About this RNA:
This 64-nucleotide RNA from Erinaceus europaeus belongs to the Rfam family "Small nucleolar RNA SNORD77". The family's consensus secondary structure was predicted with RNAalifold. From the family's description: U77 belongs to the C/D family of snoRNAs. It is predicted to guide 2'O-ribose methylation of large 28S rRNA subunit at position A1521. Gene Ontology terms of the family: nucleolus and RNA processing.
RNA sequence: AUAUUAUGAUGGUGGCAUAGUUCAGCAGAAAGUCGUGAAGAGAUGUGCCUUGUCUGAUUUAACU
Numbered sequence: 001a002u003a004u005u006a007u008g009a010u011g012g013u014g015g016c017a018u019a020g021u022u023c024a025g026c027a028g029a030a031a032g033u034c035g036u037g038a039a040g041a042g043a044u045g046u047g048c049c050u051u052g053u054c055u056g057a058u059u060u061a062a063c064u
Base pairs, nucleotide, nucleotide: 002061003060006036007035008034009033010032013028015026016025041051042050045049